[Rfam]
RNA sequence: UUCUUAUCCAGAGAGGUGGAGGGACUGGCCCUUUGAAGCCCGGCAACCAUCGAUUGUACAUGAUGUACAAUGUGAACGGUGCCAAAUCCUGCAAGAUUGAAGAAUCUUGGGAGAUGAGAG
Numbered sequence: 001u002u003c004u005u006a007u008c009c010a011g012a013g014a015g016g017u018g019g020a021g022g023g024a025c026u027g028g029c030c031c032u033u034u035g036a037a038g039c040c041c042g043g044c045a046a047c048c049a050u051c052g053a054u055u056g057u058a059c060a061u062g063a064u065g066u067a068c069a070a071u072g073u074g075a076a077c078g079g080u081g082c083c084a085a086a087u088c089c090u091g092c093a094a095g096a097u098u099g100a101a102g103a104a105u106c107u108u109g110g111g112a113g114a115u116g117a118g119a120g
Stems, first nucleotide, its partner, number of pairs: 001120008013041001015040003021031003025091001027089002042083004047079002050075003087112001092109006
RNA: SAM riboswitch aptamer (S box leader)
Organism: Pontibacillus halophilus